A member of the RNA family "SAM riboswitch aptamer (S box leader)" from Glutamicibacter uratoxydans, 93 nucleotides long.
[Rfam]
RNA sequence: ACACCAUCCAGAGCGACUGAGAGACCUGGCUCGUUGAAGUCGCAGCAACCAUCACGUUUUCGUGAGCGGUGCUAAGGCCAGGACCGAUGGAGA
Dot-bracket structure: .(.(((((....(((((...(((..[[[[)))......)))))((((.((.((((......))))..))))))...(]]]]...)))))).).

The match comes from Rfam's covariance-model search (62 bits).
The base pairs follow the family's consensus structure, which is taken from published work.